[Rfam]
RNA sequence: GGUCCCAGUCAGCUUUGCAGGGUUGCAGUCAGCCUGUGCCUGUCAGUGCCGCUGUGCAAACCCAUGCAAAACUGACUGUGGCU
Numbered sequence: 001g002g003u004c005c006c007a008g009u010c011a012g013c014u015u016u017g018c019a020g021g022g023u024u025g026c027a028g029u030c031a032g033c034c035u036g037u038g039c040c041u042g043u044c045a046g047u048g049c050c051g052c053u054g055u056g057c058a059a060a061c062c063c064a065u066g067c068a069a070a071a072c073u074g075a076c077u078g079u080g081g082c083u
Base pairs, nucleotide, nucleotide: 003081004080006078007077008076009075010074011073012072014070015069016068017067018066019065020063021062023059024058025057026056027055031053032052033051
Rfam assigns this 83-nucleotide sequence from Lepisosteus oculatus to the family "mir-19 microRNA precursor family". A search with the family's covariance model found it, with a score of 67 bits. Gene Ontology terms of the family: miRNA-mediated post-transcriptional gene silencing and RISC complex. Taxonomically the source falls in Lepisosteus (Eukaryota, Chordata, Vertebrata, Neopterygii). The family's consensus secondary structure was predicted with RNAalifold.